[Rfam]
RNA sequence: CGACAGUUGUUCCUUUUGUUAGAUGUUUCAGUCGUAUAACAAUAUUUUAGACUGUCGUAGAUAAUAUUGAAUAAAUUCACCCAACAUUUUUUAGAGUUGAAAAAUUUUUGGUUUUGCAUAUUCAUACAAUU
Numbered sequence: 001c002g003a004c005a006g007u008u009g010u011u012c013c014u015u016u017u018g019u020u021a022g023a024u025g026u027u028u029c030a031g032u033c034g035u036a037u038a039a040c041a042a043u044a045u046u047u048u049a050g051a052c053u054g055u056c057g058u059a060g061a062u063a064a065u066a067u068u069g070a071a072u073a074a075a076u077u078c079a080c081c082c083a084a085c086a087u088u089u090u091u092u093a094g095a096g097u098u099g100a101a102a103a104a105u106u107u108u109u110g111g112u113u114u115u116g117c118a119u120a121u122u123c124a125u126a127c128a129a130u131u
Stems, first nucleotide, its partner, number of pairs: 001057008014044001016042003020038002023035001069123005081111004086106001088104003094098001

This 131-nucleotide sequence from Psylliodes chrysocephalus belongs to the Rfam family "Small nucleolar RNA SNORA79". Pairs were carried over by alignment from the consensus structure, which was predicted with RNAalifold. The family has 25 seed sequences and 944 matches in Rfam 15.1. Rfam's curators write: ACA65 (SNORA79) is a member of the H/ACA class of snoRNAs that guide the sites of modification of uridines to pseudouridines. This snoRNA was identified by computational screening and its expression in mouse experimentally verified by Northern blot and primer extension analysis. The source organism's lineage runs through Eukaryota, Endopterygota, Coleoptera, Chrysomeloidea and Psylliodes.